[Rfam]
Nucleotides: 096
Stems, first nucleotide, its partner, number of pairs: 014040005021035002028056005062082007
Number, partner (000 for none) and nucleotide at each position: 001000u002000u003000u004000u005000g006000u007000u008000a009000c010000c011000g012000c013000c014040c015039c016038u017037g018036c019000c020000g021035c022034u023000u024000g025000a026000c027000c028056g029055a030054g031053a032052c033000u034022a035021g036018g037017c038016a039015g040014g041000g042000u043000u044000a045000c046000c047000a048000a049000u050000c051000c052032g053031u054030c055029u056028c057000u058000c059000a060000u061000a062082u063081c064080c065079c066078c067077g068076c069000u070000g071000a072000g073000g074000g075000u076068g077067c078066g079065g080064g081063g082062a083000g084000c085000a086000u087000a088000g089000u090000a091000a092000c093000u094000c095000c096000a

This 96-nucleotide RNA sequence from Shandvirus sb64 belongs to the Rfam family "PhotoRC-II RNA". It scores 56 bits against the family's covariance model. The source organism's lineage runs through Viruses, Duplodnaviria, Caudoviricetes, Pantevenvirales and Shandvirus sb64. The base pairs follow the family's consensus structure, which is taken from published work.